mir-599 microRNA precursor family: an 88-nucleotide RNA sequence from Crocodylus porosus.
RNA sequence: UAUCGUCCACAGUGUGUUUGAUAAGCUGACAUGGGACAGGAGUUCUUUUCACUGUUGUGUCAGUUUAUCAAACCCAUACCUGGACAUC
Numbered sequence: 001u002a003u004c005g006u007c008c009a010c011a012g013u014g015u016g017u018u019u020g021a022u023a024a025g026c027u028g029a030c031a032u033g034g035g036a037c038a039g040g041a042g043u044u045c046u047u048u049u050c051a052c053u054g055u056u057g058u059g060u061c062a063g064u065u066u067a068u069c070a071a072a073c074c075c076a077u078a079c080c081u082g083g084a085c086a087u088c
Base pairs, nucleotide, nucleotide: 005085006084007083008082009081012077013076014075016073017072018071019070020069021068022067023066024065025064026063027062028061029060030059031058032057035056036055037054038053039052040050041049042048
Rfam links the family to the GO terms RISC complex and miRNA-mediated post-transcriptional gene silencing. The organism belongs to Crocodylus, within Eukaryota. A reference for the family is Yue et al. (2008), "Identification of novel homologous microRNA genes in the rhesus macaque genome", BMC Genomics.